[Rfam]
RNA sequence: UUGCACAGUGAACACCCAAGUGUGCUUUCUAGUUCCCUUGACUUUGACUCUGUGCUAGAGCAAUGUCCGUUCUGUGCCUCUGCACUGAAGAGACUAUUUAUCCUUUUAAAACUAUUCAGAAAGUCAGAACAUUA
Numbered sequence: 001u002u003g004c005a006c007a008g009u010g011a012a013c014a015c016c017c018a019a020g021u022g023u024g025c026u027u028u029c030u031a032g033u034u035c036c037c038u039u040g041a042c043u044u045u046g047a048c049u050c051u052g053u054g055c056u057a058g059a060g061c062a063a064u065g066u067c068c069g070u071u072c073u074g075u076g077c078c079u080c081u082g083c084a085c086u087g088a089a090g091a092g093a094c095u096a097u098u099u100a101u102c103c104u105u106u107u108a109a110a111a112c113u114a115u116u117c118a119g120a121a122a123g124u125c126a127g128a129a130c131a132u133u134a
Stems, first nucleotide, its partner, number of pairs: 003055006010049001013046002017040004022035001024033003057073005079120004086109001087107004092102002

Small nucleolar RNA SNORA22: a 134-nucleotide RNA from Molossus molossus. The family's RNA type in Rfam is H/ACA-box small nucleolar RNA. Pairs were carried over by alignment from the consensus structure, which was predicted with RNAfold. About the family: ACA22 is a member of the H/ACA class of snoRNA that guide the sites of modification of uridines to pseudouridines.